RNA sequence: CUAUGUUUCUAGGCAAUGAUUCAUGGCAAAAGGAG
Number, nucleotide and partner (000 for none) at each position: 001c026002u025003a024004u023005g022006u000007u000008u019009c018010u000011a000012g000013g000014c000015a000016a000017u000018g009019a008020u000021u000022c005023a004024u003025g002026g001027c000028a000029a000030a000031a000032g000033g000034a000035g000
Annotation:
The record is a 35-nucleotide RNA, which matches "L31-Firmicutes ribosomal protein leader" in Rfam. By type it is a cis-regulatory leader. Clan: Ribosomal Protein L31 Leader clan. A reference for the family is Eckert and Weinberg (2020), "Discovery of 20 novel ribosomal leader candidates in bacteria and archaea", BMC Microbiol. Pairs were carried over by alignment from the consensus structure, which is taken from published work.